[Rfam]
RNA sequence: UGUUGUGGUGGUUGCUGUGUGUGGCAGCUCUGUAAGUGUAUCAGAGCUGUGUCAGAGCUACCACAGAGAUGACAAAGGAGAGGGCUGUGCUGAGAACUUUCAAGCUUGGAAUUUUCAGCUCUGUCCAGCUCCUACAGGA
Numbered sequence: 001u002g003u004u005g006u007g008g009u010g011g012u013u014g015c016u017g018u019g020u021g022u023g024g025c026a027g028c029u030c031u032g033u034a035a036g037u038g039u040a041u042c043a044g045a046g047c048u049g050u051g052u053c054a055g056a057g058c059u060a061c062c063a064c065a066g067a068g069a070u071g072a073c074a075a076a077g078g079a080g081a082g083g084g085c086u087g088u089g090c091u092g093a094g095a096a097c098u099u100u101c102a103a104g105c106u107u108g109g110a111a112u113u114u115u116c117a118g119c120u121c122u123g124u125c126c127a128g129c130u131c132c133u134a135c136a137g138g139a
Base pairs, nucleotide, nucleotide: 005064006063007062008061009060010059011058024050025049027047028046029045030044031043032042077132078131079130080129101123102122104120